[Rfam]
RNA sequence: ACCGCCACGGAUGGCGGGGGAGUAAAUCAGUAACGAGUUUAGACGUAAGGCUAAACUCGUAGCCACAGAAUGUACAGGACGUACAUUCUGUGGCGUGC
Number, nucleotide and partner (000 for none) at each position: 001a000002c017003c016004g015005c014006c013007a000008c000009g000010g000011a000012u000013g006014g005015c004016g003017g002018g000019g000020g000021a000022g000023u000024a000025a000026a000027u000028c000029a000030g000031u000032a000033a000034c059035g058036a057037g056038u055039u054040u053041a052042g051043a000044c049045g000046u000047a000048a000049g044050g000051c042052u041053a040054a039055a038056c037057u036058c035059g034060u000061a000062g094063c093064c092065a091066c090067a089068g088069a087070a086071u085072g084073u083074a082075c081076a000077g000078g000079a000080c000081g075082u074083a073084c072085a071086u070087u069088c068089u067090g066091u065092g064093g063094c062095g000096u000097g000098c000
A member of the RNA family "TD-2 RNA" from Treponema vincentii, 98 nucleotides long. On this family, see Weinberg et al., Nucleic Acids Res 2007: "Identification of 22 candidate structured RNAs in bacteria using the CMfinder comparative genomics pipeline". Its Rfam clan is "TD (Treponema denticola) motifs". The family's RNA type in Rfam is small RNA.